[Rfam]
RNA: mir-3135 microRNA precursor family
RNA sequence: CGCCCAGGCUGGAGUGAGUGCAGUGGUGCAAACUCAGCUCACUGCAGCCUCGACCUCCUGGGCU
Numbered sequence: 001c002g003c004c005c006a007g008g009c010u011g012g013a014g015u016g017a018g019u020g021c022a023g024u025g026g027u028g029c030a031a032a033c034u035c036a037g038c039u040c041a042c043u044g045c046a047g048c049c050u051c052g053a054c055c056u057c058c059u060g061g062g063c064u
Stems, first nucleotide, its partner, number of pairs: 002063007010052003015047001019046008028038002